RNA: Bacterial large subunit ribosomal RNA, nucleotides 602 to 831
Organism: Deinococcus ruber
RNA sequence: GACUUAGACCUCUGCGGCAAGCUUAAGACGAUAGUCGGAGGCGGAGCGAAAGCGAGUCCGAAUAGGGCGACUCAGUUGCAGGGGCUAGACUCGAAACCAGGUGAGCUAGGCAUGAGCAGGUUGAAACCCCCGUGACAGGGGGUGGAGGACCGAACCGGUGCACGCUGAAACGUUCUCGGAUGACUUGUGUUUAGGAGUGAAAAGCUAACCGAACCUGGAGAUAGCUAGUU
Numbered sequence: 001g002a003c004u005u006a007g008a009c010c011u012c013u014g015c016g017g018c019a020a021g022c023u024u025a026a027g028a029c030g031a032u033a034g035u036c037g038g039a040g041g042c043g044g045a046g047c048g049a050a051a052g053c054g055a056g057u058c059c060g061a062a063u064a065g066g067g068c069g070a071c072u073c074a075g076u077u078g079c080a081g082g083g084g085c086u087a088g089a090c091u092c093g094a095a096a097c098c099a100g101g102u103g104a105g106c107u108a109g110g111c112a113u114g115a116g117c118a119g120g121u122u123g124a125a126a127c128c129c130c131c132g133u134g135a136c137a138g139g140g141g142g143u144g145g146a147g148g149a150c151c152g153a154a155c156c157g158g159u160g161c162a163c164g165c166u167g168a169a170a171c172g173u174u175c176u177c178g179g180a181u182g183a184c185u186u187g188u189g190u191u192u193a194g195g196a197g198u199g200a201a202a203a204g205c206u207a208a209c210c211g212a213a214c215c216u217g218g219a220g221a222u223a224g225c226u227a228g229u230u
Stems, first nucleotide, its partner, number of pairs: 005087003009084010021042004027036003046053002056068004090228002093225001097218006106194011117182001119151004126143006155179003160175001162173002196206003